[Rfam]
RNA sequence: ACACAGGAAGGAGGUGGUCCGAGAAAUGCAUUCUUUUCGGAUGAGUGAGGUGGCUGCCCGCUAGGCAGCUCCGACCCGGUCGACACCGGCCGGCAUCGCCGACGCACUGCCGGCGAAUCCAACGCAGUCACCCGACCCGCAGGCUCCCGGACGUCAUCCCCCGGGGCUCCACCAGGAGCAGACAGCCUGCGGGUCGCUGCAU
Numbered sequence: 001a002c003a004c005a006g007g008a009a010g011g012a013g014g015u016g017g018u019c020c021g022a023g024a025a026a027u028g029c030a031u032u033c034u035u036u037u038c039g040g041a042u043g044a045g046u047g048a049g050g051u052g053g054c055u056g057c058c059c060g061c062u063a064g065g066c067a068g069c070u071c072c073g074a075c076c077c078g079g080u081c082g083a084c085a086c087c088g089g090c091c092g093g094c095a096u097c098g099c100c101g102a103c104g105c106a107c108u109g110c111c112g113g114c115g116a117a118u119c120c121a122a123c124g125c126a127g128u129c130a131c132c133c134g135a136c137c138c139g140c141a142g143g144c145u146c147c148c149g150g151a152c153g154u155c156a157u158c159c160c161c162c163g164g165g166g167c168u169c170c171a172c173c174a175g176g177a178g179c180a181g182a183c184a185g186c187c188u189g190c191g192g193g194u195c196g197c198u199g200c201a202u
Stems, first nucleotide, its partner, number of pairs: 013058006059115004064111003068105002073100001075098001133196013
RNA: Actinobacteria sRNA Ms_IGR-5